[Rfam]
RNA sequence: AGAGCUUGGUGAUGAUUGUUUUAUUGUCAUCCGAAAAGUUUCAUGAUUGGAACAUAAAACCUCCUACUCAUUCUGA
Numbered sequence: 001a002g003a004g005c006u007u008g009g010u011g012a013u014g015a016u017u018g019u020u021u022u023a024u025u026g027u028c029a030u031c032c033g034a035a036a037a038g039u040u041u042c043a044u045g046a047u048u049g050g051a052a053c054a055u056a057a058a059a060c061c062u063c064c065u066a067c068u069c070a071u072u073c074u075g076a
Stems, first nucleotide, its partner, number of pairs: 007070003027051002031045001
Rfam assigns this 76-nucleotide sequence from Camphora micrantha to the family "Small nucleolar RNA Z105". Rfam 15.1 lists 621 matches to the family in 204 species. Rfam links the family to the GO terms RNA processing and nucleolus.